[Rfam]
Rfam assigns this 183-nucleotide RNA from Desulfonispora thiosulfatigenes to the family "6S / SsrS RNA". The organism belongs to Desulfonispora thiosulfatigenes, within Bacteria. The match comes from Rfam's covariance-model search (69 bits).

RNA sequence: AUAUUCCUGCCGUAUCUAGUUAAUUCAGAGCGUUUUUAACCAACACUUAUUAUACGGGGUCUAAUCCUUUUUAUUGCUGUCAUGCCACUUAUCUUUAAGAGGACAACAAAUAAAUAAAAAGCAGGACACCCACCUGCUAAAGCAGGUUAAAAACUUAUGGUUAACUUAUAUAGCGGGACUACA
Numbered sequence: 001a002u003a004u005u006c007c008u009g010c011c012g013u014a015u016c017u018a019g020u021u022a023a024u025u026c027a028g029a030g031c032g033u034u035u036u037u038a039a040c041c042a043a044c045a046c047u048u049a050u051u052a053u054a055c056g057g058g059g060u061c062u063a064a065u066c067c068u069u070u071u072u073a074u075u076g077c078u079g080u081c082a083u084g085c086c087a088c089u090u091a092u093c094u095u096u097a098a099g100a101g102g103a104c105a106a107c108a109a110a111u112a113a114a115u116a117a118a119a120a121g122c123a124g125g126a127c128a129c130c131c132a133c134c135u136g137c138u139a140a141a142g143c144a145g146g147u148u149a150a151a152a153a154c155u156u157a158u159g160g161u162u163a164a165c166u167u168a169u170a171u172a173g174c175g176g177g178a179c180u181a182c183a
Stems, first nucleotide, its partner, number of pairs: 002181002005178006012171004032154010056131003059127004066121001068120007079107002085102002088099004